[Rfam]
A member of the RNA family "mir-8/mir-141/mir-200 microRNA precursor family" from Xenopus tropicalis, 69 nucleotides long. The family is grouped with related families in Rfam's "mir-8 microRNA precursor clan".
RNA sequence: ACCAAUGUCUUACCAGACAAGGUUAGAUCUAGUUACUCUCGUCUAAUACUGUCUGGUAAUGCCGUUGGU
Numbered sequence: 001a002c003c004a005a006u007g008u009c010u011u012a013c014c015a016g017a018c019a020a021g022g023u024u025a026g027a028u029c030u031a032g033u034u035a036c037u038c039u040c041g042u043c044u045a046a047u048a049c050u051g052u053c054u055g056g057u058a059a060u061g062c063c064g065u066u067g068g069u
Stems, first nucleotide, its partner, number of pairs: 002068006009061001010059010022047006
Annotation
Gene Ontology terms of the family: RISC complex and miRNA-mediated post-transcriptional gene silencing. Pairs were carried over by alignment from the consensus structure, which was predicted with RNAalifold. For this family Rfam cites "Identification of novel genes coding for small expressed RNAs" (Lagos-Quintana et al., Science, 2001).